[Rfam]
RNA: c-di-GMP-I riboswitch aptamer
Organism: Anaerosporomusa subterranea
RNA sequence: AAACUCCAUAUGCAAACUUAUCGAAAGGUAAGGACGCAAAGCCGUGGGUCUAAGAACAUUUGUUUACGACUGCCAGGUUGCGAAG
Numbered sequence: 001a002a003a004c005u006c007c008a009u010a011u012g013c014a015a016a017c018u019u020a021u022c023g024a025a026a027g028g029u030a031a032g033g034a035c036g037c038a039a040a041g042c043c044g045u046g047g048g049u050c051u052a053a054g055a056a057c058a059u060u061u062g063u064u065u066a067c068g069a070c071u072g073c074c075a076g077g078u079u080g081c082g083a084a085g
Stems, first nucleotide, its partner, number of pairs: 012037002017032006040079004045075003048070003055064003